[Rfam]
RNA sequence: AUUUAUGAUGAAAUCCUGACCUUAGGCAUGCAGGUCAGACCGUUUUGGUCCAGAUUUUACUGCCUGCCAGUGAUAGGCCUGUCAUAGUUACACUGAAUAAUU
Numbered sequence: 001a002u003u004u005a006u007g008a009u010g011a012a013a014u015c016c017u018g019a020c021c022u023u024a025g026g027c028a029u030g031c032a033g034g035u036c037a038g039a040c041c042g043u044u045u046u047g048g049u050c051c052a053g054a055u056u057u058u059a060c061u062g063c064c065u066g067c068c069a070g071u072g073a074u075a076g077g078c079c080u081g082u083c084a085u086a087g088u089u090a091c092a093c094u095g096a097a098u099a100a101u102u
Stems, first nucleotide, its partner, number of pairs: 001102001003100004
Rfam assigns this 102-nucleotide sequence from Hymenochirus boettgeri to the family "Small nucleolar RNA SNORD46". Lineage of the source: Eukaryota > Sarcopterygii > Anura > Pipoidea > Hymenochirus. Rfam's curators write: U40 is a C/D box small nucleolar RNA, also known as snoZ153 in plants. The human sequence has also been annotated in the sequence databases as U46. U40 is encoded in intron 2 of the ribosomal protein S8 gene in human, and is hypothesised to guide methylation of 2'-O-ribose residues on 28S ribosomal RNA. This family represents vertebrate U40. The base pairs follow the family's consensus structure. The match comes from Rfam's covariance-model search (45 bits). On this family, see Nicoloso et al., J Mol Biol 1996: "Intron-encoded, antisense small nucleolar RNAs: the characterization of nine novel species points to their direct role as guides for the 2'-O-ribose methylation of rRNAs".